The record is a 74-nucleotide sequence from Vidua chalybeata, which matches "Small nucleolar RNA SNORD72" in Rfam. The base pairs follow the family's consensus structure. snoRNA HBII-240 belongs to the CD family of snoRNAs. For this family Rfam cites "RNomics: an experimental approach that identifies 201 candidates for novel, small, non-messenger RNAs in mouse" (Huttenhofer et al., EMBO J, 2001).
RNA sequence: UGUUUCUUAAUCUUAAGAAAAACCUCUGAACAUAUGAACUCCAUAGUGAUUUCAGUGCAUUACUGAGAGAAGCU
Numbered sequence: 001u002g003u004u005u006c007u008u009a010a011u012c013u014u015a016a017g018a019a020a021a022a023c024c025u026c027u028g029a030a031c032a033u034a035u036g037a038a039c040u041c042c043a044u045a046g047u048g049a050u051u052u053c054a055g056u057g058c059a060u061u062a063c064u065g066a067g068a069g070a071a072g073c074u
Stems, first nucleotide, its partner, number of pairs: 002073007